RNA sequence: CCCAUAAAUAAUAAAAAGUCUGUUUAGGUUCCUUAACUUUAUUUAAAGUAUCGGUUUGAUCUUUUCUGUUAAUUUAAUUCAAAAAAACGUUAAGUUUAGAAAUCAAACUAAUACUAAUUAAAUAAGUUAAAAGACCAAACUAGUACUAAUUAAAUAAGAUAAGGACCAAAAUUUAACCUUUUUUGAAUUAAAUUAACAGAAAGGACCAAACCAAUACUUUCAAUAAAGCUAAGGAACCAAAAUGGACCUUUUAUUACUUAUGGGA
Number, nucleotide and partner (000 for none) at each position: 001c000002c263003c262004a261005u260006a259007a258008a000009u000010a000011a000012u000013a000014a000015a000016a000017a000018g000019u000020c000021u000022g000023u242024u241025u240026a000027g238028g237029u236030u000031c234032c233033u232034u231035a230036a000037c228038u227039u226040u225041a224042u223043u222044u000045a220046a219047a218048g000049u000050a000051u000052c000053g000054g000055u000056u000057u000058g000059a000060u000061c000062u000063u000064u000065u000066c000067u000068g000069u000070u000071a000072a000073u000074u000075u000076a000077a000078u000079u000080c000081a000082a000083a000084a000085a000086a000087a000088c000089g000090u000091u000092a000093a000094g000095u000096u000097u000098a000099g000100a000101a000102a000103u000104c000105a000106a000107a000108c000109u000110a000111a000112u000113a000114c000115u000116a000117a000118u000119u000120a000121a000122a000123u000124a000125a000126g000127u000128u000129a000130a000131a000132a000133g000134a000135c000136c000137a000138a000139a000140c000141u000142a000143g000144u000145a000146c000147u000148a000149a000150u000151u000152a000153a000154a000155u000156a000157a000158g000159a000160u000161a000162a000163g000164g000165a000166c000167c000168a000169a000170a000171a000172u000173u000174u000175a000176a000177c000178c000179u000180u000181u000182u000183u000184u000185g000186a000187a000188u000189u000190a000191a000192a000193u000194u000195a000196a000197c000198a000199g000200a000201a000202a000203g000204g000205a000206c000207c000208a000209a000210a000211c000212c000213a000214a000215u000216a000217c000218u047219u046220u045221c000222a043223a042224u041225a040226a039227a038228g037229c000230u035231a034232a033233g032234g031235a000236a029237c028238c027239a000240a025241a024242a023243u000244g000245g000246a000247c000248c000249u000250u000251u000252u000253a000254u000255u000256a000257c000258u007259u006260a005261u004262g003263g002264g000265a000

A member of the RNA family "MIR2655 microRNA precursor family" from Medicago truncatula, 265 nucleotides long. Lineage of the source: Eukaryota > Streptophytina > Euphyllophyta > Pentapetalae > Medicago. The family's consensus secondary structure was predicted with RNAalifold. Rfam links the family to the GO terms miRNA-mediated post-transcriptional gene silencing and RISC complex.